[Rfam]
RNA sequence: AGGAUGUGAUGAGUGGUCAAAGCUCGUAUUUAAACAUGCGAGAGGGAUGCCCGGCCCAAAGCCCAGUUACAACAACCCGACACUCCCUUUUUUUUCACCAAUUUGAUCCC
Numbered sequence: 001a002g003g004a005u006g007u008g009a010u011g012a013g014u015g016g017u018c019a020a021a022g023c024u025c026g027u028a029u030u031u032a033a034a035c036a037u038g039c040g041a042g043a044g045g046g047a048u049g050c051c052c053g054g055c056c057c058a059a060a061g062c063c064c065a066g067u068u069a070c071a072a073c074a075a076c077c078c079g080a081c082a083c084u085c086c087c088u089u090u091u092u093u094u095u096c097a098c099c100a101a102u103u104u105g106a107u108c109c110c
Stems, first nucleotide, its partner, number of pairs: 002109003014100004023042005044087004048082002051079001066076002
This 110-nucleotide sequence from Coffea arabica belongs to the Rfam family "Small nucleolar RNA Z279/snoR105/snoR108". Rfam links the family to the GO terms nucleolus and RNA processing. It scores 68 bits against the family's covariance model. Rfam describes the family as follows. This family includes the plant snoRNAs known as Z279, snoR105 and snoR108. The literature on the family includes a 2002 paper in Curr Biol by Marker et al., "Experimental RNomics: identification of 140 candidates for small non-messenger RNAs in the plant Arabidopsis thaliana". It is annotated as a C/D-box small nucleolar RNA. Pairs were carried over by alignment from the consensus structure, which was predicted with PFOLD.